Shown here is a 170-nucleotide RNA from Hordeum vulgare, a member of the family "MIR2118 microRNA precursor family". A search with the family's covariance model found it, with a score of 118 bits. For this family Rfam cites "Characterization and expression profiles of miRNAs in rice seeds" (Xue et al., Nucleic Acids Res, 2009).
RNA sequence: GCCGUGAAGAGGAAGAAAGAGAGACCUUAAGAGCGCUAGGAAUGGGAACAUGGAGAAAAGCCAAAUGUAUUUCUUUUCACCCGUGCCAGAGGUGAAAAUAUUAUGUUUGGUAUUUUCUGAUGCCCCCCAUUCCUAUGGUUCUUGAGGACUCCUUUCUCUUCAUUUUGGCA
Dot-bracket structure: ........(((((.(((...(((..(((((((((..((((((((((..(((.(.(((((.....................................................)))))).)))...))))))))))..)))))))))..))).))).))))).........

Lineage of the source: Eukaryota > Viridiplantae > Triticodae > Hordeum > Hordeum vulgare.
Gene Ontology terms of the family: miRNA-mediated post-transcriptional gene silencing and RISC complex.